The family of this 75-nucleotide RNA from Equus caballus is "Small nucleolar RNA SNORD113/SNORD114 family".
Rfam describes the family as follows. The imprinted human domain at 14q32 contains two clusters of tandemly repeated small nucleolar RNAs named 14q(I) and 14q(II) snoRNAs. These two clusters are named SNORD113 and SNORD114 respectively in the HGNC approved gene symbol nomenclature. The snoRNAs found in both clusters are clearly related and are represented here by a single family. These snoRNAs are intron encoded and are processed from the tissue-specific non-coding human MEG8 RNA, which lies downstream of the imprinted genes DLK1 and GTL2. snoRNAs 14q(I) and 14q(II) differ from previously identified C/D box snoRNAs in their expression profiles and lack of complementarity to rRNA and snRNA. Homologues of these snoRNAs are found in the imprinted non-coding mouse transcript Rian, and in the rat non-coding Bsr (brain-specific repetitive) RNA.
A reference for the family is Cavaille et al. (2002), "Identification of tandemly-repeated C/D snoRNA genes at the imprinted human 14q32 domain reminiscent of those at the Prader-Willi/Angelman syndrome region", Hum Mol Genet.
The match comes from Rfam's covariance-model search (61 bits).
By type it is a C/D-box small nucleolar RNA.
The source organism's lineage runs through Eukaryota, Deuterostomia, Sarcopterygii, Mammalia and Equus.
Rfam links the family to the GO terms nucleolus and RNA processing.
[Rfam]
RNA sequence: UGGAUCAACGACGAUAGCUGCGGGCAUAUGAGUCAUGGAUGAUGAGUGAUGCGUGUCUGGAACCAUGAGGUCCAA
Numbered sequence: 001u002g003g004a005u006c007a008a009c010g011a012c013g014a015u016a017g018c019u020g021c022g023g024g025c026a027u028a029u030g031a032g033u034c035a036u037g038g039a040u041g042a043u044g045a046g047u048g049a050u051g052c053g054u055g056u057c058u059g060g061a062a063c064c065a066u067g068a069g070g071u072c073c074a075a
Stems, first nucleotide, its partner, number of pairs: 002073005